[Rfam]
RNA sequence: AAGGUCUGACGCAGAUCUCUCCCUCCCCUGGAGUGAUCCCCGGAGCGCGACUCCUCCCCAAGUCCCGCUCCCCAGCCCCGCCGGUCUCCCCCUGGCCUGCGGGGCUUUUUA
Numbered sequence: 001a002a003g004g005u006c007u008g009a010c011g012c013a014g015a016u017c018u019c020u021c022c023c024u025c026c027c028c029u030g031g032a033g034u035g036a037u038c039c040c041c042g043g044a045g046c047g048c049g050a051c052u053c054c055u056c057c058c059c060a061a062g063u064c065c066c067g068c069u070c071c072c073c074a075g076c077c078c079c080g081c082c083g084g085u086c087u088c089c090c091c092c093u094g095g096c097c098u099g100c101g102g103g104g105c106u107u108u109u110u111a
Stems, first nucleotide, its partner, number of pairs: 004012001006011001014038004019033004042071006049064004074106008083097004

The family of this 111-nucleotide RNA sequence from Noviluteimonas dokdonensis is "Xanthomonadaceae sRNA sX13". The literature on the family includes a 2011 paper in Nucleic Acids Res by Schmidtke et al., "Genome-wide transcriptome analysis of the plant pathogen Xanthomonas identifies sRNAs with putative virulence functions". The source organism's lineage runs through Bacteria, Pseudomonadati, Pseudomonadota, Lysobacteraceae and Noviluteimonas dokdonensis. By type it is a small RNA. Pairs were carried over by alignment from the consensus structure, which was predicted with CMfinder.